About this RNA: This 329-nucleotide part of an RNA from Cloeon dipterum belongs to the Rfam family "Eukaryotic large subunit ribosomal RNA". Rfam links the family to the GO terms structural constituent of ribosome and ribosome. Taxonomically the source falls in Cloeon (Eukaryota, Eumetazoa, Protostomia, Ecdysozoa).
RNA sequence: GAGUCCAGCAUGCGCGCGAGUCGUCGGGACGCACUAGACCCGAAGGCGUAUUGAACGAGAAGGCCCGCCUCGCGCGGGCCGAGGGGUGAUGGCGGCCCCACGCGGGCCGCCCGCAACCCCGGGGCGUCUCGAUCUACCGCGGCUCGUCCGCGGAAGGCGAGGCGCACCAAGAGCGCGCACGCUGGGACCCGAAAGAUGGUGAACUAUGCCUGGUCAGGACGAAGUCAGGGGAAACCCUGAUGGAGGUCCGUAGCGAUUCUGACGUGCAAAUCGAUCGUCAGAGCUGGGUAUAGGGGCGAAAGACUAAUCGAACCAUCUAGUAGCUGGUU
Numbered sequence: 001g002a003g004u005c006c007a008g009c010a011u012g013c014g015c016g017c018g019a020g021u022c023g024u025c026g027g028g029a030c031g032c033a034c035u036a037g038a039c040c041c042g043a044a045g046g047c048g049u050a051u052u053g054a055a056c057g058a059g060a061a062g063g064c065c066c067g068c069c070u071c072g073c074g075c076g077g078g079c080c081g082a083g084g085g086g087u088g089a090u091g092g093c094g095g096c097c098c099c100a101c102g103c104g105g106g107c108c109g110c111c112c113g114c115a116a117c118c119c120c121g122g123g124g125c126g127u128c129u130c131g132a133u134c135u136a137c138c139g140c141g142g143c144u145c146g147u148c149c150g151c152g153g154a155a156g157g158c159g160a161g162g163c164g165c166a167c168c169a170a171g172a173g174c175g176c177g178c179a180c181g182c183u184g185g186g187a188c189c190c191g192a193a194a195g196a197u198g199g200u201g202a203a204c205u206a207u208g209c210c211u212g213g214u215c216a217g218g219a220c221g222a223a224g225u226c227a228g229g230g231g232a233a234a235c236c237c238u239g240a241u242g243g244a245g246g247u248c249c250g251u252a253g254c255g256a257u258u259c260u261g262a263c264g265u266g267c268a269a270a271u272c273g274a275u276c277g278u279c280a281g282a283g284c285u286g287g288g289u290a291u292a293g294g295g296g297c298g299a300a301a302g303a304c305u306a307a308u309c310g311a312a313c314c315a316u317c318u319a320g321u322a323g324c325u326g327g328u329u
Stems, first nucleotide, its partner, number of pairs: 005185005011179007020047003025042004030037001051058002083120005091111006122168002124165006133156001188327002191324001195317006204293011215281001217249004224241007253278004258274002261272002295305002